[Rfam]
Rfam assigns this 87-nucleotide sequence from Nelumbo nucifera to the family "Small nucleolar RNA snoR14". Gene Ontology terms of the family: RNA processing and nucleolus. On this family, see Brown et al., RNA 2001: "Multiple snoRNA gene clusters from Arabidopsis".
RNA sequence: ACGAGGUGACGAUGAAAUUCAUGGUCUGACAAUCCACUGAAAUUAUUAGUGUGAUGUUAAUCAUGAAUCCCAAUAGGUUCUAAUCGU
Numbered sequence: 001a002c003g004a005g006g007u008g009a010c011g012a013u014g015a016a017a018u019u020c021a022u023g024g025u026c027u028g029a030c031a032a033u034c035c036a037c038u039g040a041a042a043u044u045a046u047u048a049g050u051g052u053g054a055u056g057u058u059a060a061u062c063a064u065g066a067a068u069c070c071c072a073a074u075a076g077g078u079u080c081u082a083a084u085c086g087u
Base pairs, nucleotide, nucleotide: 001087002086003085004084